RNA: Small nucleolar RNA Z118/Z121/Z120
Organism: Digitaria exilis
RNA sequence: AAUUUGCUGUGAUGACUCCUAUUAGGACGGUAUCUGAAGGGUUGACUUUUUAGUGAGCCCCUCUGAUUAUACCAAAACUGAAUAUGGUUUCUGAGCAAGUC
Numbered sequence: 001a002a003u004u005u006g007c008u009g010u011g012a013u014g015a016c017u018c019c020u021a022u023u024a025g026g027a028c029g030g031u032a033u034c035u036g037a038a039g040g041g042u043u044g045a046c047u048u049u050u051u052a053g054u055g056a057g058c059c060c061c062u063c064u065g066a067u068u069a070u071a072c073c074a075a076a077a078c079u080g081a082a083u084a085u086g087g088u089u090u091c092u093g094a095g096c097a098a099g100u101c
Base pairs, nucleotide, nucleotide: 002100003099004098005097006096007095038062039061040060041059043057